[Rfam]
RNA sequence: CAACAGGGUGGGAGCGAGCCUCAGGAAGCUUGGGGCGCCACCCUUAA
Numbered sequence: 001c002a003a004c005a006g007g008g009u010g011g012g013a014g015c016g017a018g019c020c021u022c023a024g025g026a027a028g029c030u031u032g033g034g035g036c037g038c039c040a041c042c043c044u045u046a047a
Stems, first nucleotide, its partner, number of pairs: 006043006018036008

Shown here is a 47-nucleotide sequence from Orthohepacivirus hominis, a member of the family "Hepatitis C virus stem-loop I". The literature on the family includes a 2016 paper in Mol Cell by Pirakitikulr et al., "The Coding Region of the HCV Genome Contains a Network of Regulatory RNA Structures". By type it is a cis-regulatory element.